The record is a 78-nucleotide RNA from Halpernia frigidisoli, which matches "Flavo-1 RNA" in Rfam. Pairs were carried over by alignment from the consensus structure, which is taken from published work. By type it is a small RNA. Lineage of the source: Bacteria > Flavobacteriia > Flavobacteriales > Weeksellaceae > Halpernia.

RNA sequence: UUAUAGCCCCGAUGGAAGCGGCAUCCUUUUGUGAUGAGGAACGAAGAGCAAAAGAUAUAGCGGACAGCGGGAAAUAGC
Numbered sequence: 001u002u003a004u005a006g007c008c009c010c011g012a013u014g015g016a017a018g019c020g021g022c023a024u025c026c027u028u029u030u031g032u033g034a035u036g037a038g039g040a041a042c043g044a045a046g047a048g049c050a051a052a053a054g055a056u057a058u059a060g061c062g063g064a065c066a067g068c069g070g071g072a073a074a075u076a077g078c
Stems, first nucleotide, its partner, number of pairs: 009070003013066002018061002023056003029051004